[Rfam]
RNA sequence: AGCUCCACCGGGUCGACGGCCCGCGUGGUGAGCAGGUAGUCGCGCAUCACGAUGGCGUGCCGGCCCUC
Numbered sequence: 001a002g003c004u005c006c007a008c009c010g011g012g013u014c015g016a017c018g019g020c021c022c023g024c025g026u027g028g029u030g031a032g033c034a035g036g037u038a039g040u041c042g043c044g045c046a047u048c049a050c051g052a053u054g055g056c057g058u059g060c061c062g063g064c065c066c067u068c
Base pairs, nucleotide, nucleotide: 004063005062008059012029013028016026017025018024035056037054038053040052041051042050044048

ASdes TB sRNA: a 68-nucleotide RNA from Actinacidiphila glaucinigra. The source organism's lineage runs through Bacteria, Bacillati, Actinomycetes, Streptomycetaceae and Actinacidiphila. Rfam 15.1 lists 1,192 matches to the family in 825 species.